RNA sequence: GAGGAAGUGAUGAUCGUUUCCCCAAAUGAUCGACUCUGAUUAUAUUGUGCAUUUUGUUUAUUUAAUUCUCUUUAUCAGAGAGAAUUACCCAGACAUGACUCUGAUUCAU
Numbered sequence: 001g002a003g004g005a006a007g008u009g010a011u012g013a014u015c016g017u018u019u020c021c022c023c024a025a026a027u028g029a030u031c032g033a034c035u036c037u038g039a040u041u042a043u044a045u046u047g048u049g050c051a052u053u054u055u056g057u058u059u060a061u062u063u064a065a066u067u068c069u070c071u072u073u074a075u076c077a078g079a080g081a082g083a084a085u086u087a088c089c090c091a092g093a094c095a096u097g098a099c100u101c102u103g104a105u106u107c108a109u
Stems, first nucleotide, its partner, number of pairs: 001109001003107003
Small nucleolar RNA Z103: a 109-nucleotide RNA sequence from Macleaya cordata. Pairs were carried over by alignment from the consensus structure, which was predicted with PFOLD. The organism belongs to Macleaya, within Eukaryota. Its family is annotated with RNA processing and nucleolus in the Gene Ontology. It is annotated as a C/D-box small nucleolar RNA. On this family, see Chen et al., Nucleic Acids Res 2003: "The high diversity of snoRNAs in plants: identification and comparative study of 120 snoRNA genes from Oryza sativa".